[Rfam]
RNA sequence: CAGGGCAGUAAGUUGAUGGGGUCCCAGGUUGACAUAUAUUCCCGGGACUACGUCAACUACUUGCUCCG
Numbered sequence: 001c002a003g004g005g006c007a008g009u010a011a012g013u014u015g016a017u018g019g020g021g022u023c024c025c026a027g028g029u030u031g032a033c034a035u036a037u038a039u040u041c042c043c044g045g046g047a048c049u050a051c052g053u054c055a056a057c058u059a060c061u062u063g064c065u066c067c068g
Base pairs, nucleotide, nucleotide: 004065005064006063007062008061011058012057013056014055015054016053017052018051020049021048022047023046024045025044027042028041
RNA: mir-1990 microRNA precursor family
Organism: Mizuhopecten yessoensis